[Rfam]
RNA sequence: AUGCAUCCAAUUUGUAAGUCGCUCUGGAUAAGAGUGUCUGCAAAAUGACCUAAA
Number, nucleotide and partner (000 for none) at each position: 001a000002u000003g000004c000005a000006u000007c000008c000009a000010a000011u000012u000013u043014g041015u040016a039017a000018g000019u000020c036021g035022c034023u033024c032025u031026g000027g000028a000029u000030a000031a025032g024033a023034g022035u021036g020037u000038c000039u016040g015041c014042a000043a013044a000045a000046u000047g000048a000049c000050c000051u000052a000053a000054a000
A member of the RNA family "UnaL2 LINE 3' element" from Salmo trutta, 54 nucleotides long. The match comes from Rfam's covariance-model search (61 bits). Gene Ontology term of the family: transposition, RNA-mediated. The family's consensus secondary structure is taken from published work. Rfam describes the family as follows. The eel long interspersed element (LINE) UnaL2 and its partner short interspersed element (SINE) share a conserved 3' tail containing a stem-loop that is critical for their retrotransposition. Lineage of the source: Eukaryota > Chordata > Salmoniformes > Salmonidae > Salmo.